[Rfam]
RNA sequence: AGCUUUGCGCAGUGGCGAUAUCGUAACCAAUGAAGGUUUACUGAGGUGCGAUUAUUGCUAGUUGAAAACUUAUACCAAUACCCCGCCUAGGAAAUGUGUAAUACCAUUUCCUAUGGCAAUUUUUGAAAGCUUCUAAGGAAG
Numbered sequence: 001a002g003c004u005u006u007g008c009g010c011a012g013u014g015g016c017g018a019u020a021u022c023g024u025a026a027c028c029a030a031u032g033a034a035g036g037u038u039u040a041c042u043g044a045g046g047u048g049c050g051a052u053u054a055u056u057g058c059u060a061g062u063u064g065a066a067a068a069c070u071u072a073u074a075c076c077a078a079u080a081c082c083c084c085g086c087c088u089a090g091g092a093a094a095u096g097u098g099u100a101a102u103a104c105c106a107u108u109u110c111c112u113a114u115g116g117c118a119a120u121u122u123u124u125g126a127a128a129g130c131u132u133c134u135a136a137g138g139a140a141g
Stems, first nucleotide, its partner, number of pairs: 020052005026047003034042002085117003088113008096104002130141004
The record is a 141-nucleotide RNA from Pediculus humanus, which matches "U4 spliceosomal RNA" in Rfam. Its family is annotated with spliceosomal tri-snRNP complex assembly and U4 snRNP in the Gene Ontology. Rfam's curators put it in the seed alignment. By type it is a spliceosomal small nuclear RNA. A reference for the family is Zwieb (1997), "The uRNA database", Nucleic Acids Res.